[Rfam]
RNA sequence: UUCCGAUGAUGACUUCUUAUUAGUGCCACGUGUCUGGGCCACUGAAACCCGGUGAUGGAACUGAGGAGCUGAGGAA
Dot-bracket structure: ((((....................................................................))))

The record is a 76-nucleotide RNA from Octodon degus, which matches "Small nucleolar RNA SNORD66" in Rfam.
The family's RNA type in Rfam is C/D-box small nucleolar RNA.
The match comes from Rfam's covariance-model search (97 bits).
Its family is annotated with RNA processing and nucleolus in the Gene Ontology.
Rfam describes the family as follows. snoRNA HBII-142 is part of the C/D family of snoRNAs. It is the human orthologue of the mouse MBII-142 snoRNA and is predicted to guide 2'O-ribose methylation of small 18S rRNA at residue C1272.